A member of the RNA family "Plant signal recognition particle RNA" from Salix viminalis, 304 nucleotides long. Lineage of the source: Eukaryota > Streptophytina > Mesangiospermae > fabids > Salix. By type it is a non-coding RNA gene.
RNA sequence: GCCGAGCUCGGUAGCGUGGGCUUGUGAUCCAAGUGGAGGCAUCAGGGUGAUGUGGACAUUGAUCCUGUCCAGAUGGCCGAGUCUUGUGUGGCUAAUCUCUGGCUUGCCCGUUCCAAGCCAGGAGCCGAGCCGAGUGAUCCAGGCGAAGGCUUGGGUCACUGAGCUCCUAAAGCGGGGGGCAAUGCGUGAGGCUGGUUUCACAGAGCAGCGAUAACCUCCCCCUCCUGGCAGUGGAAGGUUAACAGGCCGGUGCCACCUGGACUCGUAUGGUCUGAUGGGUUGAUCUAACUGGACCAUCGCCUUU
Numbered sequence: 001g002c003c004g005a006g007c008u009c010g011g012u013a014g015c016g017u018g019g020g021c022u023u024g025u026g027a028u029c030c031a032a033g034u035g036g037a038g039g040c041a042u043c044a045g046g047g048u049g050a051u052g053u054g055g056a057c058a059u060u061g062a063u064c065c066u067g068u069c070c071a072g073a074u075g076g077c078c079g080a081g082u083c084u085u086g087u088g089u090g091g092c093u094a095a096u097c098u099c100u101g102g103c104u105u106g107c108c109c110g111u112u113c114c115a116a117g118c119c120a121g122g123a124g125c126c127g128a129g130c131c132g133a134g135u136g137a138u139c140c141a142g143g144c145g146a147a148g149g150c151u152u153g154g155g156u157c158a159c160u161g162a163g164c165u166c167c168u169a170a171a172g173c174g175g176g177g178g179g180c181a182a183u184g185c186g187u188g189a190g191g192c193u194g195g196u197u198u199c200a201c202a203g204a205g206c207a208g209c210g211a212u213a214a215c216c217u218c219c220c221c222c223u224c225c226u227g228g229c230a231g232u233g234g235a236a237g238g239u240u241a242a243c244a245g246g247c248c249g250g251u252g253c254c255a256c257c258u259g260g261a262c263u264c265g266u267a268u269g270g271u272c273u274g275a276u277g278g279g280u281u282g283a284u285c286u287a288a289c290u291g292g293a294c295c296a297u298c299g300c301c302u303u304u
Base pairs, nucleotide, nucleotide: 001040002039003038004023005022006021007020008019009018010017028037029036030035044303045302046301047300048299049298050297051296052295054294057291058290059288060287061286062284063283064282069278070277071276075272076271077270078269079264080263081262082261083260084259086257088256089255090254091253093252094251099250100249101248102247103246104245105244106243108238109237111236112235113234114233115232117229118228119227120226121225122224123223124222127166128165129164130163133160134159135158136157137156138155139154140153141152142151143150144149167172174219175218176217177216178215185210186209187208192203193202194201